[Rfam]
RNA sequence: AUUAGUUCAGGUGAUGAAGUCCACCAAAUAACUGCCUUUGGGGCUGAUGACUUCUACAUUGAC
Numbered sequence: 001a002u003u004a005g006u007u008c009a010g011g012u013g014a015u016g017a018a019g020u021c022c023a024c025c026a027a028a029u030a031a032c033u034g035c036c037u038u039u040g041g042g043g044c045u046g047a048u049g050a051c052u053u054c055u056a057c058a059u060u061g062a063c
Base pairs, nucleotide, nucleotide: 010025011024012023013022016054017053018052019051020050021049034044035043036042
Shown here is a 63-nucleotide RNA from Acidithiobacillus marinus, a member of the family "Fluoride riboswitch aptamer (crcB RNA motif)".
A search with the family's covariance model found it, with a score of 54 bits.
The source organism's lineage runs through Bacteria, Pseudomonadati, Pseudomonadota, Acidithiobacillia and Acidithiobacillus.
Rfam links the family to the GO terms positive regulation of gene expression and response to fluoride.